[Rfam]
RNA sequence: ACGUCAGAGAAAGGAUUCUGCUGUUGGUCCCACUCCAAGCUUCACAAAAUGGGUGGUGAACAGAGGCUCCAGACUCUGCUUGUU
Number, nucleotide and partner (000 for none) at each position: 001a083002c082003g081004u000005c078006a077007g076008a075009g074010a000011a000012a000013g070014g069015a068016u000017u066018c065019u064020g000021c000022u062023g061024u060025u059026g000027g057028u000029c000030c056031c055032a054033c053034u052035c051036c000037a000038a000039g000040c000041u000042u000043c000044a000045c000046a000047a000048a000049a000050u000051g035052g034053g033054u032055g031056g030057u027058g000059a025060a024061c023062a022063g000064a019065g018066g017067c000068u015069c014070c013071a000072g000073a000074c009075u008076c007077u006078g005079c000080u000081u003082g002083u001084u000
This 84-nucleotide RNA from Carlito syrichta belongs to the Rfam family "mir-541 microRNA precursor family".
On this family, see Sewer et al., BMC Bioinformatics 2005: "Identification of clustered microRNAs using an ab initio prediction method".
Rfam 15.1 lists 125 matches to the family in 115 species.
Taxonomically the source falls in Carlito (Eukaryota, Opisthokonta, Teleostomi, Tetrapoda).
The family's consensus secondary structure was predicted with RNAalifold.